This 85-nucleotide RNA from Geosporobacter ferrireducens belongs to the Rfam family "c-di-GMP-I-GGC riboswitch aptamer". The organism belongs to Geosporobacter, within Bacteria. The family is grouped with related families in Rfam's "c-di-GMP_I riboswitch clan". A search with the family's covariance model found it, with a score of 64 bits.
RNA sequence: AUCGAUAAAGGCAAACCAUUCGAAAGGAUGGGACGCAAAGCCAUAGGGCCUUUCACGAAAGUGAGUGGCAGCCGUGCUACCGAAA
Numbered sequence: 001a002u003c004g005a006u007a008a009a010g011g012c013a014a015a016c017c018a019u020u021c022g023a024a025a026g027g028a029u030g031g032g033a034c035g036c037a038a039a040g041c042c043a044u045a046g047g048g049c050c051u052u053u054c055a056c057g058a059a060a061g062u063g064a065g066u067g068g069c070a071g072c073c074g075u076g077c078u079a080c081c082g083a084a085a
Base pairs, nucleotide, nucleotide: 003082004081011036012035016031017030018029019028020027021026034071039078040077041076044074046073047072048069049068050067